[Rfam]
RNA sequence: CUGCAGUGAUGAGCCUUGAGGUGACUGAUCUGGUAUUGCUUUUCCACCGGGGAGAGCUCUGACCAGGGAAUGAUCUCAAUUUAAUCUUCUCUCUGAGCAG
Numbered sequence: 001c002u003g004c005a006g007u008g009a010u011g012a013g014c015c016u017u018g019a020g021g022u023g024a025c026u027g028a029u030c031u032g033g034u035a036u037u038g039c040u041u042u043u044c045c046a047c048c049g050g051g052g053a054g055a056g057c058u059c060u061g062a063c064c065a066g067g068g069a070a071u072g073a074u075c076u077c078a079a080u081u082u083a084a085u086c087u088u089c090u091c092u093c094u095g096a097g098c099a100g
Stems, first nucleotide, its partner, number of pairs: 003098002038057004
Shown here is a 100-nucleotide sequence from Perca fluviatilis, a member of the family "Z30 small nucleolar RNA". A reference for the family is Galardi et al. (2002), "Purified box C/D snoRNPs are able to reproduce site-specific 2'-O-methylation of target RNA in vitro", Mol Cell Biol. NCBI's taxonomy places the organism under Eukaryota, Deuterostomia, Neopterygii, Percinae, Perca. Rfam links the family to the GO terms RNA processing and nucleolus. Rfam classes the family as a C/D-box small nucleolar RNA.